Rfam assigns this 135-nucleotide RNA from Channa argus to the family "Small nucleolar RNA SNORA9". The match comes from Rfam's covariance-model search (100 bits). About the family: ACA9 is a member of the H/ACA class of snoRNA that guide the sites of modification of uridines to pseudouridines. Pairs were carried over by alignment from the consensus structure, which was predicted with PFOLD. Gene Ontology terms of the family: nucleolus and RNA processing. Clan: SNORA9 clan.
RNA sequence: UGGCAGACCUUUCCAGCAAGGCUGAGCCUGCAGUGGCCCUGUUCUUUCCUGUAGCGUCUGCUAGAUAGAUGUGAGCUUGUUUGAGGCCCUGCUGUGACUCUUCAUGGCAGGGUUAUAGGUAAACCUCCAACAGUU
Numbered sequence: 001u002g003g004c005a006g007a008c009c010u011u012u013c014c015a016g017c018a019a020g021g022c023u024g025a026g027c028c029u030g031c032a033g034u035g036g037c038c039c040u041g042u043u044c045u046u047u048c049c050u051g052u053a054g055c056g057u058c059u060g061c062u063a064g065a066u067a068g069a070u071g072u073g074a075g076c077u078u079g080u081u082u083g084a085g086g087c088c089c090u091g092c093u094g095u096g097a098c099u100c101u102u103c104a105u106g107g108c109a110g111g112g113u114u115a116u117a118g119g120u121a122a123a124c125c126u127c128c129a130a131c132a133g134u135u
Stems, first nucleotide, its partner, number of pairs: 003061006019045003024039001026037003073127003087112006094105003